[Rfam]
RNA sequence: UCUUAAUGAUGAUACCAAGAUCUCUGAGCAAUAUGUAGUUGGUCCUUCAUUUGCGACGGCUGAUGUUUUUUUGUUCUUUCAAGACGGGGCUGAGAGAAGC
Dot-bracket structure: ((((.........................................................................................))))...
Numbered sequence: 001u002c003u004u005a006a007u008g009a010u011g012a013u014a015c016c017a018a019g020a021u022c023u024c025u026g027a028g029c030a031a032u033a034u035g036u037a038g039u040u041g042g043u044c045c046u047u048c049a050u051u052u053g054c055g056a057c058g059g060c061u062g063a064u065g066u067u068u069u070u071u072u073g074u075u076c077u078u079u080c081a082a083g084a085c086g087g088g089g090c091u092g093a094g095a096g097a098a099g100c
Stems, first nucleotide, its partner, number of pairs: 001097004